RNA sequence: ACCACACACGGAAGGAGCUUCAGUCAUCCGCCCUCAGAGCUCUUGAGUUUACGCGAGCUUGGCGGCGAUGCAGUUGAUGAAAGCCCUGGGUCCUUGAUGGGACGCCGGCCCACAAGGCUCGGCUGUGAUUCUCGGCGGUUGGCUUCUAAGGGUUGCUCUCACACUGAACGCAGUGCCGGGACCCAUCUCGAGUUGGAGUCAAAGUUUCGUGCUUGUCUGGCGCUGCGAACAGCUUGAGAACACAGCAUUUCCGAGGACACCGCUGUCGGCUAUCCAACUGAGAACUCGACUGGUCUAUUGCAGUAUAAGGGCAGGCCAGGCGGCAAGGCAGCCCUGGUUGUCCUCGUGCCAGAGAUGGUGGGAGGACAACCCCCCAUUGUUGAAG
Number, nucleotide and partner (000 for none) at each position: 001a000002c000003c000004a000005c000006a000007c000008a000009c000010g000011g000012a000013a000014g000015g000016a000017g000018c000019u000020u000021c000022a000023g000024u000025c000026a000027u000028c000029c000030g000031c000032c000033c000034u000035c000036a000037g000038a000039g000040c000041u000042c000043u000044u000045g000046a000047g000048u000049u000050u000051a000052c000053g000054c000055g000056a000057g000058c000059u000060u000061g000062g000063c000064g000065g000066c000067g000068a000069u000070g000071c000072a000073g000074u000075u000076g000077a000078u000079g000080a000081a000082a000083g000084c000085c000086c000087u000088g000089g000090g000091u000092c000093c000094u000095u000096g000097a000098u000099g000100g000101g000102a000103c000104g000105c000106c000107g000108g000109c000110c000111c000112a000113c000114a000115a000116g000117g000118c000119u000120c000121g000122g000123c000124u000125g000126u000127g000128a000129u000130u000131c000132u000133c000134g000135g000136c000137g000138g000139u000140u000141g000142g000143c000144u000145u000146c000147u000148a000149a000150g000151g000152g000153u000154u000155g000156c000157u000158c000159u000160c000161a000162c000163a000164c000165u000166g000167a000168a000169c000170g000171c000172a000173g000174u000175g000176c000177c000178g000179g000180g200181a199182c198183c196184c195185a194186u000187c000188u000189c000190g000191a000192g000193u000194u185195g184196g183197a000198g182199u181200c180201a000202a214203a213204g212205u211206u000207u000208c000209g000210u000211g205212c204213u203214u202215g000216u000217c000218u000219g000220g000221c000222g000223c000224u000225g000226c000227g000228a000229a000230c000231a000232g000233c000234u000235u000236g000237a000238g000239a000240a000241c000242a000243c000244a000245g000246c000247a000248u000249u000250u000251c000252c000253g000254a000255g000256g000257a000258c000259a000260c000261c000262g000263c000264u000265g000266u000267c000268g000269g000270c000271u000272a000273u000274c000275c000276a000277a000278c000279u000280g000281a000282g000283a000284a000285c000286u000287c000288g000289a000290c000291u000292g000293g000294u000295c000296u000297a000298u000299u000300g000301c000302a000303g000304u000305a000306u000307a000308a000309g000310g000311g000312c000313a000314g000315g000316c000317c000318a000319g000320g000321c000322g000323g000324c000325a000326a000327g000328g000329c000330a000331g000332c000333c000334c000335u000336g000337g000338u000339u000340g000341u000342c000343c000344u000345c000346g000347u000348g000349c000350c000351a000352g000353a000354g000355a000356u000357g000358g000359u000360g000361g000362g000363a000364g000365g000366a000367c000368a000369a000370c000371c000372c000373c000374c000375c000376a000377u000378u000379g000380u000381u000382g000383a000384a000385g000
Ascomycota telomerase RNA: a 385-nucleotide part of an RNA from Cordyceps sp. RAO-2017.
A reference for the family is Qi et al. (2013), "The common ancestral core of vertebrate and fungal telomerase RNAs", Nucleic Acids Res.
Lineage of the source: Eukaryota > Fungi > Dikarya > Hypocreomycetidae > Cordyceps.
Its Rfam clan is "Telomerase clan".
Rfam classes the family as a non-coding RNA gene.
Its family is annotated with telomere maintenance via telomerase, telomerase activity and telomerase catalytic core complex in the Gene Ontology.